A member of the RNA family "SAM riboswitch aptamer (S box leader)" from Salinicoccus roseus, 101 nucleotides long.
RNA sequence: UUCUUAUCCAGAGAGGUGGAGGGACUGGCCCUUUGAAGCCUCGGCAACAGCCUCAGCGGGCCCGUGCCAAUUCCAGAAGCAUAAUUGCUUGAAGAUAAGAA
Number, nucleotide and partner (000 for none) at each position: 001u101002u100003c099004u098005u097006a096007u095008c094009c000010a000011g000012a000013g042014a041015g040016g039017u038018g000019g000020a000021g031022g030023g029024a000025c076026u075027g074028g073029c023030c022031c021032u000033u000034u000035g000036a000037a000038g017039c016040c015041u014042c013043g068044g067045c066046a065047a000048c064049a000050g061051c060052c059053u058054c000055a000056g000057c000058g053059g052060g051061c050062c000063c000064g048065u046066g045067c044068c043069a000070a000071u000072u093073c028074c027075a026076g025077a090078a089079g088080c087081a086082u000083a000084a000085u000086u081087g080088c079089u078090u077091g000092a000093a072094g008095a007096u006097a005098a004099g003100a002101a001

A search with the family's covariance model found it, with a score of 87 bits.